[Rfam]
RNA: msiK RNA
Organism: Agrococcus pavilionensis
RNA sequence: CGCCCGUCCUCACCACGACGGAUCGUCCGGCACGUACCUGCCGGUGGAAAGGGAGUAUC
Numbered sequence: 001c002g003c004c005c006g007u008c009c010u011c012a013c014c015a016c017g018a019c020g021g022a023u024c025g026u027c028c029g030g031c032a033c034g035u036a037c038c039u040g041c042c043g044g045u046g047g048a049a050a051g052g053g054a055g056u057a058u059c
Stems, first nucleotide, its partner, number of pairs: 009051002013047003027044006